RNA sequence: UAUCUCGGAUAAUCGCUAUGCAUGCAAGUGCAUAGAGGAAAGUCCAUGCUCACACGAUUCUGAGACGAUCGUAGUGUUCGUGCCUGACGAAACAAUAAGUCAGGGCAGCCUCCAAGGCUGACGGCUGCGAACCGGCCUAAGUGCGAUGCAUACGGCUCCAGUAGCUAUAAAAGUGCCACAGUGACGUAGCUCCUGCAGAAAUGCAGGAGGUGGAACGCGGUAAACCCCUCGAGUGAGCAAUCCAAAUUAGGUAGGAGCACUUUCCAAUGGGAAUUCAACCUGAGGAAAGAUACUACACUGUAGUAUAGACAGAUGAUUAUCACCAAUGUGCGAGUGUAACUAGUGCACGCCUCAGCACAGCGGUACAGAACAUGGCUUACAGAG
Numbered sequence: 001u002a003u004c005u006c007g008g009a010u011a012a013u014c015g016c017u018a019u020g021c022a023u024g025c026a027a028g029u030g031c032a033u034a035g036a037g038g039a040a041a042g043u044c045c046a047u048g049c050u051c052a053c054a055c056g057a058u059u060c061u062g063a064g065a066c067g068a069u070c071g072u073a074g075u076g077u078u079c080g081u082g083c084c085u086g087a088c089g090a091a092a093c094a095a096u097a098a099g100u101c102a103g104g105g106c107a108g109c110c111u112c113c114a115a116g117g118c119u120g121a122c123g124g125c126u127g128c129g130a131a132c133c134g135g136c137c138u139a140a141g142u143g144c145g146a147u148g149c150a151u152a153c154g155g156c157u158c159c160a161g162u163a164g165c166u167a168u169a170a171a172a173g174u175g176c177c178a179c180a181g182u183g184a185c186g187u188a189g190c191u192c193c194u195g196c197a198g199a200a201a202u203g204c205a206g207g208a209g210g211u212g213g214a215a216c217g218c219g220g221u222a223a224a225c226c227c228c229u230c231g232a233g234u235g236a237g238c239a240a241u242c243c244a245a246a247u248u249a250g251g252u253a254g255g256a257g258c259a260c261u262u263u264c265c266a267a268u269g270g271g272a273a274u275u276c277a278a279c280c281u282g283a284g285g286a287a288a289g290a291u292a293c294u295a296c297a298c299u300g301u302a303g304u305a306u307a308g309a310c311a312g313a314u315g316a317u318u319a320u321c322a323c324c325a326a327u328g329u330g331c332g333a334g335u336g337u338a339a340c341u342a343g344u345g346c347a348c349g350c351c352u353c354a355g356c357a358c359a360g361c362g363g364u365a366c367a368g369a370a371c372a373u374g375g376c377u378u379a380c381a382g383a384g
Base pairs, nucleotide, nucleotide: 004384005383006382007380008321009320010319011318012317013316014315016035017034018033019032020031021030040378041377042376044375045374046373047372048371049237050236051235052234053233054072055071056070057069059068060067078232079231080230082228083104084103085102086101087100088099105122106120107119108118109117110116111115123227124226127165128164134157135156136155137154141151142150143149173225174224175221176220177219190209191208192207193206194205195204196203197202241256242255243254260289261288262287263286264285265284290306291305292304293303294302295301323363324362327359328358329357330356331355
Rfam assigns this 384-nucleotide RNA sequence from Salinicoccus roseus to the family "Bacterial RNase P class B".
Gene Ontology terms of the family: dimeric ribonuclease P complex, ribonuclease P activity and tRNA processing.
Lineage of the source: Bacteria > Bacillota > Bacilli > Staphylococcaceae > Salinicoccus.
By type it is a ribozyme.
Rfam's curators write: Ribonuclease P (RNase P) is a ubiquitous endoribonuclease, found in archaea, bacteria and eukarya as well as chloroplasts and mitochondria. Its best characterised activity is the generation of mature 5'-ends of tRNAs by cleaving the 5'-leader elements of precursor-tRNAs. Cellular RNase Ps are ribonucleoproteins.
Clan: RNaseP clan.
It scores 306 bits against the family's covariance model.
For this family Rfam cites "Ribonuclease P: unity and diversity in a tRNA processing ribozyme" (Frank and Pace, Annu Rev Biochem, 1998).